[Rfam]
RNA sequence: AAUGUAAGACAAGCGCCAGAACUUUUAACAAAAGUUGACGAGGACUGAGAUAAUCGAAAUUUCGGCGGGUUUCUCAGAGGUGGUUACAACCGUUACUAACAAAGCUAUAGGGUAACCUAUAGAACAAAGAGGUAACUGUAACAAGUC
Numbered sequence: 001a002a003u004g005u006a007a008g009a010c011a012a013g014c015g016c017c018a019g020a021a022c023u024u025u026u027a028a029c030a031a032a033a034g035u036u037g038a039c040g041a042g043g044a045c046u047g048a049g050a051u052a053a054u055c056g057a058a059a060u061u062u063c064g065g066c067g068g069g070u071u072u073c074u075c076a077g078a079g080g081u082g083g084u085u086a087c088a089a090c091c092g093u094u095a096c097u098a099a100c101a102a103a104g105c106u107a108u109a110g111g112g113u114a115a116c117c118u119a120u121a122g123a124a125c126a127a128a129g130a131g132g133u134a135a136c137u138g139u140a141a142c143a144a145g146u147c
Stems, first nucleotide, its partner, number of pairs: 020036007046076005054065004078085001092136006105122007
Dot-bracket structure: ...................(((((((...))))))).........(((((...((((....))))......))))).(......)......((((((.......(((((((....)))))))........))))))...........
A member of the RNA family "glmS glucosamine-6-phosphate activated ribozyme aptamer" from Fusobacterium varium, 147 nucleotides long. The source organism's lineage runs through Bacteria, Fusobacteriia, Fusobacteriales, Fusobacterium and Fusobacterium varium. About the family: This entry contains a glucosamine-6-phosphate activated ribozyme that is found in the mRNA for GlmS. GlmS is an enzyme that uses fructose-6-phosphate and glutamine to generate glucosamine-6-phosphate. The ribozyme catalyses self cleavage of the glmS mRNA that is thought to regulate GlmS activity. The base pairs follow the family's consensus structure, which is taken from published work. The match comes from Rfam's covariance-model search (91 bits). The family's RNA type in Rfam is riboswitch. The literature on the family includes a 2004 paper in Nature by Winkler et al., "Control of gene expression by a natural metabolite-responsive ribozyme".